Annotation: This 69-nucleotide RNA sequence from Equus caballus belongs to the Rfam family "mir-33 microRNA precursor family". The literature on the family includes a 2009 paper in BMC Genomics by Li et al., "Direct sequencing and expression analysis of a large number of miRNAs in Aedes aegypti and a multi-species survey of novel mosquito miRNAs". The source organism's lineage runs through Eukaryota, Vertebrata, Teleostomi, Laurasiatheria and Equus. Pairs were carried over by alignment from the consensus structure, which was predicted with PFOLD.
RNA sequence: CUGUGGUGCAUUGUAGUUGCAUUGCAUGUUCUGGCGGUACCCAUGCAAUGUUUCCACAGUGCAUCACAG
Numbered sequence: 001c002u003g004u005g006g007u008g009c010a011u012u013g014u015a016g017u018u019g020c021a022u023u024g025c026a027u028g029u030u031c032u033g034g035c036g037g038u039a040c041c042c043a044u045g046c047a048a049u050g051u052u053u054c055c056a057c058a059g060u061g062c063a064u065c066a067c068a069g
Stems, first nucleotide, its partner, number of pairs: 001069004006065001007063008016054001019051001021049007